Small nucleolar RNA snR48: a 107-nucleotide RNA sequence from Williopsis jadinii. Rfam links the family to the GO terms RNA processing and nucleolus. For this family Rfam cites "A computational screen for methylation guide snoRNAs in yeast" (Lowe and Eddy, Science, 1999). The source organism's lineage runs through Eukaryota, Dikarya, saccharomyceta, Wickerhamomycetaceae and Williopsis. The family's consensus secondary structure was predicted with ILM. The family is grouped with related families in Rfam's "SNORD60 clan".
RNA sequence: UUUGAGUGAUGACUACCUUAAUUUGUAUGUUUUUUCUGGCAUCUCUAAUGUUAGGGCCUUGUUUCAGUACCGGGUUCAAUGAAUACAACCCUUUUAAUAAUCUGACC
Number, nucleotide and partner (000 for none) at each position: 001u000002u000003u000004g000005a000006g000007u000008g000009a000010u000011g000012a000013c000014u000015a000016c000017c000018u000019u000020a000021a000022u000023u000024u000025g000026u000027a000028u000029g000030u000031u000032u000033u000034u000035u000036c000037u000038g000039g000040c000041a000042u000043c000044u000045c000046u000047a000048a000049u000050g000051u000052u000053a000054g000055g076056g075057c074058c073059u000060u000061g000062u000063u000064u000065c000066a000067g000068u000069a000070c000071c000072g000073g058074g057075u056076u055077c000078a000079a000080u000081g000082a000083a000084u000085a000086c000087a000088a000089c000090c000091c000092u000093u000094u000095u000096a000097a000098u000099a000100a000101u000102c000103u000104g000105a000106c000107c000